raiA RNA: a 217-nucleotide sequence. It is one of the family's seed sequences.

RNA sequence: UCUACCUAGGUCUGUGGUUGAAAGUCGAUGCCAGUCGCAGGCAAAGCGAUCCACGUAAGGUAACAAAAAGUUACUGAUCAUGGUGCGGCUUAGAAGUGAGUCCUACCUGGAGAAUUAUACAUAAUAGUAAUUUAUCCAGAGAGGAGUAUUAGUGGGAAAAUCCUGCAAAUCUCCCAGUAGGCCGGUGUGGGGUCAAAAACCAGGUCAGCUAGGCGAA
Numbered sequence: 001u002c003u004a005c006c007u008a009g010g011u012c013u014g015u016g017g018u019u020g021a022a023a024g025u026c027g028a029u030g031c032c033a034g035u036c037g038c039a040g041g042c043a044a045a046g047c048g049a050u051c052c053a054c055g056u057a058a059g060g061u062a063a064c065a066a067a068a069a070g071u072u073a074c075u076g077a078u079c080a081u082g083g084u085g086c087g088g089c090u091u092a093g094a095a096g097u098g099a100g101u102c103c104u105a106c107c108u109g110g111a112g113a114a115u116u117a118u119a120c121a122u123a124a125u126a127g128u129a130a131u132u133u134a135u136c137c138a139g140a141g142a143g144g145a146g147u148a149u150u151a152g153u154g155g156g157a158a159a160a161u162c163c164u165g166c167a168a169a170u171c172u173c174c175c176a177g178u179a180g181g182c183c184g185g186u187g188u189g190g191g192g193u194c195a196a197a198a199a200c201c202a203g204g205u206c207a208g209c210u211a212g213g214c215g216a217a
Stems, first nucleotide, its partner, number of pairs: 001217001003215001005213005012208003015202005028188003031041001033090007050083002055078001058075002062071001081195001102181005107139005143174004152166002154163003